[Rfam]
RNA sequence: AGUGUGGAUAGAGGUGCGAAGUUCAUGAGUAAGCAAAUCGAGGGAAAUGAGUCCCGUAGACAUUUGCUGAAAGGGGAAUUCGCCGAAGUGUCCGGAAGCUCAUCUUUCCGGAUGCUGGGCCUGUUCUUGAACAAAGACAGGACUGUCAUACAGGAGAACUGUAUGGAGGGCUAUCUGAUUG
Number, nucleotide and partner (000 for none) at each position: 001a000002g000003u000004g000005u000006g176007g175008a174009u173010a172011g171012a000013g000014g000015u000016g083017c082018g081019a080020a079021g000022u077023u076024c075025a000026u000027g000028a000029g000030u000031a000032a068033g067034c066035a065036a064037a063038u062039c000040g000041a000042g000043g000044g000045a000046a000047a000048u000049g000050a000051g000052u000053c000054c000055c000056g000057u000058a000059g000060a000061c000062a038063u037064u036065u035066g034067c033068u032069g000070a000071a000072a000073g000074g000075g024076g023077a022078a000079u020080u019081c018082g017083c016084c000085g000086a000087a116088g115089u114090g113091u112092c111093c110094g109095g108096a107097a106098g105099c000100u000101c000102a000103u000104c000105u098106u097107u096108c095109c094110g093111g092112a091113u090114g089115c088116u087117g144118g143119g000120c141121c140122u139123g138124u137125u136126c000127u134128u000129g000130a000131a000132c000133a000134a127135a000136g125137a124138c123139a122140g121141g120142a000143c118144u117145g000146u166147c165148a164149u163150a162151c161152a160153g000154g000155a000156g000157a000158a000159c000160u152161g151162u150163a149164u148165g147166g146167a000168g000169g000170g000171c011172u010173a009174u008175c007176u006177g000178a000179u000180u000181g000